[Rfam]
Notes: Small nucleolar RNA Z157/R69/R10: a 90-nucleotide RNA. The sequence is in the family's curated seed alignment. Rfam links the family to the GO terms nucleolus and RNA processing. The family's consensus secondary structure was predicted with PFOLD.
RNA sequence: GGAGCGGUGAUGAGCAAUUUUUUGUGGACUAGAGUUUCUGAUACUACUUUUGUAGUAUUUGAAGACCAAACCCUUGGCUGUCUGAGCUCC
Numbered sequence: 001g002g003a004g005c006g007g008u009g010a011u012g013a014g015c016a017a018u019u020u021u022u023u024g025u026g027g028a029c030u031a032g033a034g035u036u037u038c039u040g041a042u043a044c045u046a047c048u049u050u051u052g053u054a055g056u057a058u059u060u061g062a063a064g065a066c067c068a069a070a071c072c073c074u075u076g077g078c079u080g081u082c083u084g085a086g087c088u089c090c
Base pairs, nucleotide, nucleotide: 001090002089003088004087005086035064036063037062038061042057043056044055045054046053047052